[Rfam]
RNA: Metazoan signal recognition particle RNA
RNA sequence: GUCGGGCUGUGUUUGCAGCAGCCUGUAAUCUCAAGCUUAGGGGAGACUGAUAAAAUUAGCGGCGCCAGAUAACGGCUGUUCAGUGUGGCAAUUUGCCUUCUGCAGUGUACUAUGGGCCAUGACGCCCGUAGCGAUGCCGGGUGCGGCUAUAGUUCUGCUGGCGAAGGCCUGGGCAGAACUAGGGCCAUAAUGAGCUGCGCACCGCGCUAUGCUGGCUUCACAGAGCAGCGAAAAGCGGCCACAUCCGGUUCAUGUUGCUCGGAAUACGUCAGGCUUGAUUAUAUGCAUUGCAGGUGCUGAGGCAGUUGCUGGCCACGCUAAUUUUU
Numbered sequence: 001g002u003c004g005g006g007c008u009g010u011g012u013u014u015g016c017a018g019c020a021g022c023c024u025g026u027a028a029u030c031u032c033a034a035g036c037u038u039a040g041g042g043g044a045g046a047c048u049g050a051u052a053a054a055a056u057u058a059g060c061g062g063c064g065c066c067a068g069a070u071a072a073c074g075g076c077u078g079u080u081c082a083g084u085g086u087g088g089c090a091a092u093u094u095g096c097c098u099u100c101u102g103c104a105g106u107g108u109a110c111u112a113u114g115g116g117c118c119a120u121g122a123c124g125c126c127c128g129u130a131g132c133g134a135u136g137c138c139g140g141g142u143g144c145g146g147c148u149a150u151a152g153u154u155c156u157g158c159u160g161g162c163g164a165a166g167g168c169c170u171g172g173g174c175a176g177a178a179c180u181a182g183g184g185c186c187a188u189a190a191u192g193a194g195c196u197g198c199g200c201a202c203c204g205c206g207c208u209a210u211g212c213u214g215g216c217u218u219c220a221c222a223g224a225g226c227a228g229c230g231a232a233a234a235g236c237g238g239c240c241a242c243a244u245c246c247g248g249u250u251c252a253u254g255u256u257g258c259u260c261g262g263a264a265u266a267c268g269u270c271a272g273g274c275u276u277g278a279u280u281a282u283a284u285g286c287a288u289u290g291c292a293g294g295u296g297c298u299g300a301g302g303c304a305g306u307u308g309c310u311g312g313c314c315a316c317g318c319u320a321a322u323u324u325u326u
Stems, first nucleotide, its partner, number of pairs: 001047003004024007029044003052325010064313005073308008086299005092294005118273001120271005126262002130259004136249008145186004150181010160169003187191001194239005205230003212223003